The family of this 84-nucleotide sequence from Streptomyces sp. SID8352 is "nrdJ RNA".
RNA sequence: ACCUGUCGCGGGCGGAGGCAGAGACGCCCGCGGCACGAGACAGAAACACCGUGCCACGGAACAAUCGCGGCACUUCAGGGCGUU
Numbered sequence: 001a002c003c004u005g006u007c008g009c010g011g012g013c014g015g016a017g018g019c020a021g022a023g024a025c026g027c028c029c030g031c032g033g034c035a036c037g038a039g040a041c042a043g044a045a046a047c048a049c050c051g052u053g054c055c056a057c058g059g060a061a062c063a064a065u066c067g068c069g070g071c072a073c074u075u076c077a078g079g080g081c082g083u084u
Stems, first nucleotide, its partner, number of pairs: 004035011051073005057067002
NCBI's taxonomy places the organism under Bacteria, Actinomycetota, Kitasatosporales, Streptomycetaceae, Streptomyces. Rfam classes the family as a small RNA. Pairs were carried over by alignment from the consensus structure, which is taken from published work.